Shown here is an 80-nucleotide RNA sequence from Gracilinema caldarium, a member of the family "Fluoride riboswitch aptamer (crcB RNA motif)".
RNA sequence: AUUUAAAGCGGUGAUGGAGUCCACCUUGGCACCAGCCUGAACCGCCCGGGAUAUCCCCUGCUGAUGACUCCUUCCGAUAC
Numbered sequence: 001a002u003u004u005a006a007a008g009c010g011g012u013g014a015u016g017g018a019g020u021c022c023a024c025c026u027u028g029g030c031a032c033c034a035g036c037c038u039g040a041a042c043c044g045c046c047c048g049g050g051a052u053a054u055c056c057c058c059u060g061c062u063g064a065u066g067a068c069u070c071c072u073u074c075c076g077a078u079a080c
Stems, first nucleotide, its partner, number of pairs: 010025004016071006044061002
Dot-bracket structure: .........[[[[..((((((]]]]..................((..............))....)))))).........

The family has 289 seed sequences and 2,293 matches in Rfam 15.1. Rfam links the family to the GO terms positive regulation of gene expression and response to fluoride. The base pairs follow the family's consensus structure, which is taken from published work. The literature on the family includes a 2017 paper in Nat Chem Biol by Zhao et al., "An excited state underlies gene regulation of a transcriptional riboswitch". A search with the family's covariance model found it, with a score of 44 bits.